[Rfam]
Shown here is a 142-nucleotide sequence from Kribbella flavida, a member of the family "SAM riboswitch aptamer (S box leader)".
RNA sequence: UGCUCAUCCAGAGGGACUGAGGGAUACGGCCCGUUGAAGUCCCGGCAACCCUCCCCGUGGAGGCCCCGUCCUGGGGCCGCUCGCGGCGGAACGGUGCCAAAUCCGUCCCACGCCGAGAUCCGGCGCCCGGGGAAGAUGAGGA
Numbered sequence: 001u002g003c004u005c006a007u008c009c010a011g012a013g014g015g016a017c018u019g020a021g022g023g024a025u026a027c028g029g030c031c032c033g034u035u036g037a038a039g040u041c042c043c044g045g046c047a048a049c050c051c052u053c054c055c056c057g058u059g060g061a062g063g064c065c066c067c068g069u070c071c072u073g074g075g076g077c078c079g080c081u082c083g084c085g086g087c088g089g090a091a092c093g094g095u096g097c098c099a100a101a102u103c104c105g106u107c108c109c110a111c112g113c114c115g116a117g118a119u120c121c122g123g124c125g126c127c128c129g130g131g132g133a134a135g136a137u138g139a140g141g142a
Stems, first nucleotide, its partner, number of pairs: 001142001003140006013043005021032003026106004044098004049094002052090003102134001107131003112126001
The sequence is in the family's curated seed alignment. Rfam 15.1 lists 9,625 matches to the family in 4,158 species. Rfam's curators write: The SAM riboswitch is found upstream of a number of genes which code for proteins involved in methionine or cysteine biosynthesis in Gram-positive bacteria. NCBI's taxonomy places the organism under Bacteria, Bacillati, Actinomycetota, Actinomycetes, Kribbella flavida.